[Rfam]
RNA sequence: UUGGUCUGAGGUAGUUGUUUGUACAGUUUGAGGGUCUGUGAUUCUGCCCAAUACAGGAGCUAACUGUACAAAUGACUGCCUUGCCCAC
Numbered sequence: 001u002u003g004g005u006c007u008g009a010g011g012u013a014g015u016u017g018u019u020u021g022u023a024c025a026g027u028u029u030g031a032g033g034g035u036c037u038g039u040g041a042u043u044c045u046g047c048c049c050a051a052u053a054c055a056g057g058a059g060c061u062a063a064c065u066g067u068a069c070a071a072a073u074g075a076c077u078g079c080c081u082u083g084c085c086c087a088c
Stems, first nucleotide, its partner, number of pairs: 002087003006083001008082020032049004052059001
Rfam assigns this 88-nucleotide RNA from Channa argus to the family "let-7 microRNA precursor family". The family's consensus secondary structure was predicted with RNAalifold. This family represents the microRNAs (miRNA) let-7 and mir-98. let-7 was identified from a study of developmental timing in C. elegans, and was later shown to be part of a much larger class of non-coding RNAs termed miRNAs. Rfam 15.1 lists 8,694 matches to the family in 797 species. The match comes from Rfam's covariance-model search (66 bits).